[Rfam]
RNA: Brucella sRNA 0709
RNA sequence: AAAUAUGCUUGUUUUCAACUUAAUUUUCAUAUUUAUUUCAAGUGUUUAACGUUCUUUUUUUGGGGGCAGAAUGCGUAAGUUUGUUAAGAGAACCGCAAUUUGUGGAUCGCUCUUAUUGAUAGCGAUUUUUAUGAUGAAUAGUUGGAGCGGUAUUCAGAGCGGGCAUAACGCAUUUCGUCCAGUCUCAAAAUCAAAACCAGCAUCAAGUGAGACUUGUAAAGAGUAUAACGAAAAGGGUUUUAUCGGAAAAUUGUUUGAUUUUUCUGCACGUGGUUGGUGCGAUUGAUUAAAGAGGCUUCGGCCUCUUUUUUUGACGCU
Numbered sequence: 001a002a003a004u005a006u007g008c009u010u011g012u013u014u015u016c017a018a019c020u021u022a023a024u025u026u027u028c029a030u031a032u033u034u035a036u037u038u039c040a041a042g043u044g045u046u047u048a049a050c051g052u053u054c055u056u057u058u059u060u061u062g063g064g065g066g067c068a069g070a071a072u073g074c075g076u077a078a079g080u081u082u083g084u085u086a087a088g089a090g091a092a093c094c095g096c097a098a099u100u101u102g103u104g105g106a107u108c109g110c111u112c113u114u115a116u117u118g119a120u121a122g123c124g125a126u127u128u129u130u131a132u133g134a135u136g137a138a139u140a141g142u143u144g145g146a147g148c149g150g151u152a153u154u155c156a157g158a159g160c161g162g163g164c165a166u167a168a169c170g171c172a173u174u175u176c177g178u179c180c181a182g183u184c185u186c187a188a189a190a191u192c193a194a195a196a197c198c199a200g201c202a203u204c205a206a207g208u209g210a211g212a213c214u215u216g217u218a219a220a221g222a223g224u225a226u227a228a229c230g231a232a233a234a235g236g237g238u239u240u241u242a243u244c245g246g247a248a249a250a251u252u253g254u255u256u257g258a259u260u261u262u263u264c265u266g267c268a269c270g271u272g273g274u275u276g277g278u279g280c281g282a283u284u285g286a287u288u289a290a291a292g293a294g295g296c297u298u299c300g301g302c303c304u305c306u307u308u309u310u311u312u313g314a315c316g317c318u
Base pairs, nucleotide, nucleotide: 001034002033003032004031005030006029007028011024012023013022041318042317043316044315045314046313054237055236056235057234058233059232060231061230062229064180065179066178067177068175069174071173072172073171074170075169076168079164080163081162082161083160084159085158088155089154090153092151093150094149095148096147100141101140102139103138104128105127106126107125108124109123110122111121181214182213183212184211185210186209187208191206245264246263247262248261249260250259251258252257265281266280267279268278269277285312286311289308290307291306292305293304294303295302296301